Rfam assigns this 172-nucleotide sequence from Dichanthelium oligosanthes to the family "small nucleolar RNA snoR143". The family's RNA type in Rfam is H/ACA-box small nucleolar RNA. On this family, see Chen and Wu, Nucleic Acids Res 2009: "Mining small RNA sequencing data: a new approach to identify small nucleolar RNAs in Arabidopsis". The base pairs follow the family's consensus structure, which was predicted with RNAalifold.
[Rfam]
RNA sequence: UUGCACUUGUAUUAGCUGUGUCCUGCUUUCUUUUAUGAUGAUGGUGGGAAGUUAAGCUGGUGCACAGAGGAAAUGCUGCUCUUGUAGUAGUGGCGGCCAGACAACCGUUGAGGGAUAGAUCCACAGAUGAACAUUCUUUCUGCCGUUUGUCUACUAAUUCUAUCUCACAUUC
Number, nucleotide and partner (000 for none) at each position: 001u000002u064003g063004c062005a061006c060007u000008u000009g000010u000011a000012u000013u054014a053015g052016c051017u050018g000019u000020g000021u049022c048023c047024u046025g045026c044027u000028u041029u040030c000031u000032u000033u000034u000035a000036u000037g000038a000039u000040g029041a028042u000043g000044g026045u025046g024047g023048g022049a021050a017051g016052u015053u014054a013055a000056g000057c000058u000059g000060g006061u005062g004063c003064a002065c000066a000067g000068a000069g000070g000071a000072a000073a000074u000075g000076c000077u000078g000079c000080u000081c000082u000083u000084g000085u000086a000087g000088u000089a000090g000091u000092g000093g000094c000095g000096g000097c000098c000099a000100g000101a000102c000103a000104a000105c000106c000107g000108u000109u000110g166111a165112g000113g000114g164115a163116u162117a161118g160119a159120u000121c000122c000123a000124c000125a000126g000127a000128u000129g000130a148131a147132c000133a000134u000135u000136c000137u000138u000139u000140c000141u000142g000143c000144c000145g000146u000147u131148u130149g000150u000151c000152u000153a000154c000155u000156a000157a000158u000159u119160c118161u117162a116163u115164c114165u111166c110167a000168c000169a000170u000171u000172c000